A member of the RNA family "Plant signal recognition particle RNA" from Senna tora, 304 nucleotides long. It is annotated as a non-coding RNA gene.

[Rfam]
RNA sequence: GUCGAGCUUGGUAGCGCUAGCUUGUAACCCAAGUGGGGACAUGAAGAUGAUGGAACACAGAUCUGGCUUUGCUUGGUUGGGCUAGUCGUUGCAAUUUGCUGGCUUGCCCGCUCCAAGUUGUGAGCUGAGCCACGGGGUUUAAGCGAAGGCUUGGACCUCGUGGCUCCUAAACCAGAGGGCAAAGCGUGAGGCUGGCUUCACAGAACAGCGAAAACUUCUGGUUCUCAACAGUGGAGGGAUAACAUGCCGAUGCACUUCUUAGCCCACAUGCCUAGUGAGCCUAGUUGCUUGGACCAUCAUUUUU
Number, nucleotide and partner (000 for none) at each position: 001g040002u039003c038004g023005a022006g021007c020008u019009u000010g017011g000012u000013a000014g000015c000016g000017c010018u000019a008020g007021c006022u005023u004024g000025u000026a000027a000028c037029c036030c035031a000032a000033g000034u000035g030036g029037g028038g003039a002040c001041a000042u000043g304044a303045a302046g301047a300048u299049g298050a297051u296052g295053g294054a000055a000056c291057a290058c000059a000060g000061a286062u284063c000064u000065g281066g280067c279068u000069u278070u277071g276072c275073u274074u000075g272076g271077u270078u000079g265080g264081g263082c262083u261084a260085g259086u000087c000088g000089u000090u254091g253092c000093a000094a251095u000096u000097u000098g000099c000100u249101g248102g247103c246104u000105u244106g243107c000108c238109c237110g000111c236112u235113c234114c233115a232116a000117g229118u228119u227120g226121u000122g224123a223124g222125c221126u000127g166128a165129g164130c163131c162132a161133c160134g159135g158136g157137g156138u155139u154140u153141a152142a151143g150144c149145g000146a000147a000148g000149g144150c143151u142152u141153g140154g139155a138156c137157c136158u135159c134160g133161u132162g131163g130164c129165u128166c127167c000168u000169a000170a000171a000172c000173c220174a219175g218176a217177g216178g215179g000180c000181a000182a000183a000184g000185c210186g209187u208188g000189a000190g000191g000192c203193u202194g201195g000196c000197u000198u000199c000200a000201c194202a193203g192204a000205a000206c000207a000208g187209c186210g185211a000212a000213a000214a000215c178216u177217u176218c175219u174220g173221g125222u124223u123224c122225u000226c120227a119228a118229c117230a000231g000232u115233g114234g113235a112236g111237g109238g108239a000240u000241a000242a000243c106244a105245u000246g103247c102248c101249g100250a000251u094252g000253c091254a090255c000256u000257u000258c000259u085260u084261a083262g082263c081264c080265c079266a000267c000268a000269u000270g077271c076272c075273u000274a073275g072276u071277g070278a069279g067280c066281c065282u000283a000284g062285u000286u061287g000288c000289u000290u057291g056292g000293a000294c053295c052296a051297u050298c049299a048300u047301u046302u045303u044304u043

The organism belongs to Senna, within Eukaryota. Its Rfam clan is "SRP clan". The base pairs follow the family's consensus structure, which is taken from published work.